[Rfam]
RNA sequence: CUGGGAUGAUGCAAAUUAGCCAAAUCAUAUGUGGAUGUGCUCCAUGGGGCAGUCUUUCCUAAGCUUGUACUGGUUCCUAUUUGAGAGGUAUUUUGCCAUUCUCUUCUAUGGACUUGGUUAGGCUUUUGAUAUUUGCCUUUUGUAGAAGUGCAUCUAUCUGAUGAUAAAACAGAGAUAAGGGUUCUUGCUGACCAGA
Numbered sequence: 001c002u003g004g005g006a007u008g009a010u011g012c013a014a015a016u017u018a019g020c021c022a023a024a025u026c027a028u029a030u031g032u033g034g035a036u037g038u039g040c041u042c043c044a045u046g047g048g049g050c051a052g053u054c055u056u057u058c059c060u061a062a063g064c065u066u067g068u069a070c071u072g073g074u075u076c077c078u079a080u081u082u083g084a085g086a087g088g089u090a091u092u093u094u095g096c097c098a099u100u101c102u103c104u105u106c107u108a109u110g111g112a113c114u115u116g117g118u119u120a121g122g123c124u125u126u127u128g129a130u131a132u133u134u135g136c137c138u139u140u141u142g143u144a145g146a147a148g149u150g151c152a153u154c155u156a157u158c159u160g161a162u163g164a165u166a167a168a169a170c171a172g173a174g175a176u177a178a179g180g181g182u183u184c185u186u187g188c189u190g191a192c193c194a195g196a
Base pairs, nucleotide, nucleotide: 001195002194003193004192